[Rfam]
The family of this 80-nucleotide RNA from Proteiniclasticum aestuarii is "Group II catalytic intron D1-D4-1". The organism belongs to Proteiniclasticum, within Bacteria. The pairing is the family consensus, mapped onto this sequence.

RNA sequence: AAUUUCUCGACAUGGUUGAAAAAGGUUCGUCGUGAGAAGUCAGCAGAGGUCGUAGUACCUGGCGCACGCCAGGAAAGGAC
Numbered sequence: 001a002a003u004u005u006c007u008c009g010a011c012a013u014g015g016u017u018g019a020a021a022a023a024g025g026u027u028c029g030u031c032g033u034g035a036g037a038a039g040u041c042a043g044c045a046g047a048g049g050u051c052g053u054a055g056u057a058c059c060u061g062g063c064g065c066a067c068g069c070c071a072g073g074a075a076a077g078g079a080c
Base pairs, nucleotide, nucleotide: 001026003023004022005021007019008018009017010016040047041046049080050079051078058073059072060071061070062069063068
On this family, see Bonen and Vogel, Trends Genet 2001: "The ins and outs of group II introns".